The record is a 72-nucleotide sequence from Crocodylus porosus, which matches "Mammalian CPEB3 ribozyme" in Rfam. Lineage of the source: Eukaryota > Sarcopterygii > Archosauria > Crocodylidae > Crocodylus.

RNA sequence: UGCAGGUUUGAGGUCAUAGCAGAAGUGCUCACAGCGCAACUGUCAGAGUCCAAUGAAUCUGUGAAUUCUGCU
Numbered sequence: 001u002g003c004a005g006g007u008u009u010g011a012g013g014u015c016a017u018a019g020c021a022g023a024a025g026u027g028c029u030c031a032c033a034g035c036g037c038a039a040c041u042g043u044c045a046g047a048g049u050c051c052a053a054u055g056a057a058u059c060u061g062u063g064a065a066u067u068c069u070g071c072u
Stems, first nucleotide, its partner, number of pairs: 013040002018072007025037003044061004049056002